RNA sequence: UUUGGCUAUGGGGGCCAUAGUAGAAGCAUUUAGGUCAUGGUCCCCAUCAGAGUCCAGAGUCCUUAAGAAUCUGCAAAUUCUGCU
Numbered sequence: 001u002u003u004g005g006c007u008a009u010g011g012g013g014g015c016c017a018u019a020g021u022a023g024a025a026g027c028a029u030u031u032a033g034g035u036c037a038u039g040g041u042c043c044c045c046a047u048c049a050g051a052g053u054c055c056a057g058a059g060u061c062c063u064u065a066a067g068a069a070u071c072u073g074c075a076a077a078u079u080c081u082g083c084u
Stems, first nucleotide, its partner, number of pairs: 011044006019084007026038001048073004053068002
Notes
This 84-nucleotide RNA from Alligator sinensis belongs to the Rfam family "Mammalian CPEB3 ribozyme".